[Rfam]
RNA sequence: ACGCCUUAAACUAAUGAGUAAGGAAAAUAACGCUCCGGUGGAAUAACCGGUGUGCUGGACUAGUUCCAGGCCUAUCUUUGCAGGGCUCAGGCCUUCUCUGCGUGUCUUCUUACUCGCGAAGACGCGCCGAUGAUAGUGGCCUGCCU
Numbered sequence: 001a002c003g004c005c006u007u008a009a010a011c012u013a014a015u016g017a018g019u020a021a022g023g024a025a026a027a028u029a030a031c032g033c034u035c036c037g038g039u040g041g042a043a044u045a046a047c048c049g050g051u052g053u054g055c056u057g058g059a060c061u062a063g064u065u066c067c068a069g070g071c072c073u074a075u076c077u078u079u080g081c082a083g084g085g086c087u088c089a090g091g092c093c094u095u096c097u098c099u100g101c102g103u104g105u106c107u108u109c110u111u112a113c114u115c116g117c118g119a120a121g122a123c124g125c126g127c128c129g130a131u132g133a134u135a136g137u138g139g140c141c142u143g144c145c146u
Base pairs, nucleotide, nucleotide: 004023005022006021007020008019032053033052035050036049037048038047039046055069056068057067058066083146084145085144086143090141091140092139093138097130098129100127101126102125103124104123105122106121107120108119109118